[Rfam]
RNA sequence: UGAGUCGGCCGGGCGGUCGCGUCGGCCCGCAGCGAUGCGGGUCGCCGAGGAAGGUCCGGACUCCGCAGAGCGACGGUGGUGGGUAACGCCCACCCACGGUGACGUGCGGGACAGUGCCACAGAAAGCAGACCGCCAGCGGCCUCGCGUUCGCGCGGGGUGCGGGUAAGGGUGAAACGGUGGGGUAAGAGCCCACCAGCGCCCCGGGUGACCGGGGCGGCUCGGUAAACCCCACCGGGAGCAAGACCAAGAAGGACCUCCGGGUCCGCGCAGGCGACGACGCUGCUCGCCGAGCCUGCGGGUAGGUCGCUGGAGCGACGCGGCAACGCGUCGCCGAGAGAGAUGACCGCCGGGGCGUGCGCCUCACAGAAUCCGGCCUACAGGCCGGCUCAUCCG
Numbered sequence: 001u002g003a004g005u006c007g008g009c010c011g012g013g014c015g016g017u018c019g020c021g022u023c024g025g026c027c028c029g030c031a032g033c034g035a036u037g038c039g040g041g042u043c044g045c046c047g048a049g050g051a052a053g054g055u056c057c058g059g060a061c062u063c064c065g066c067a068g069a070g071c072g073a074c075g076g077u078g079g080u081g082g083g084u085a086a087c088g089c090c091c092a093c094c095c096a097c098g099g100u101g102a103c104g105u106g107c108g109g110g111a112c113a114g115u116g117c118c119a120c121a122g123a124a125a126g127c128a129g130a131c132c133g134c135c136a137g138c139g140g141c142c143u144c145g146c147g148u149u150c151g152c153g154c155g156g157g158g159u160g161c162g163g164g165u166a167a168g169g170g171u172g173a174a175a176c177g178g179u180g181g182g183g184u185a186a187g188a189g190c191c192c193a194c195c196a197g198c199g200c201c202c203c204g205g206g207u208g209a210c211c212g213g214g215g216c217g218g219c220u221c222g223g224u225a226a227a228c229c230c231c232a233c234c235g236g237g238a239g240c241a242a243g244a245c246c247a248a249g250a251a252g253g254a255c256c257u258c259c260g261g262g263u264c265c266g267c268g269c270a271g272g273c274g275a276c277g278a279c280g281c282u283g284c285u286c287g288c289c290g291a292g293c294c295u296g297c298g299g300g301u302a303g304g305u306c307g308c309u310g311g312a313g314c315g316a317c318g319c320g321g322c323a324a325c326g327c328g329u330c331g332c333c334g335a336g337a338g339a340g341a342u343g344a345c346c347g348c349c350g351g352g353g354c355g356u357g358c359g360c361c362u363c364a365c366a367g368a369a370u371c372c373g374g375c376c377u378a379c380a381g382g383c384c385g386g387c388u389c390a391u392c393c394g
Stems, first nucleotide, its partner, number of pairs: 001390010011379001012349007020047002023044008052377003056374005061239004070285001074235005079093005094108001095106004109230002114228002116224003131169002133165003137161003141157003177195006197219001198217008243306004268297006280288002313332008
Dot-bracket structure: ((((((((((((((((((.((.((((((((......)))))))).))....[[[.[[[[[((((.....[...((((((((((.....)))))(((((....)))).)((...(((((............(((((.(((.(((...........))).))).)))..)).......((((((.......)))))).(((((((((....)))))))).)..)))..)))))))))))))...((((.....................((((((......((...].))...)))))).....))))......((((((((....))))))))..........)))))))....................]]]]]]]].).))))))))))....

A member of the RNA family "Bacterial RNase P class A" from Mumia flava, 394 nucleotides long. Lineage of the source: Bacteria > Actinomycetota > Actinomycetes > Propionibacteriales > Mumia. The family's RNA type in Rfam is ribozyme.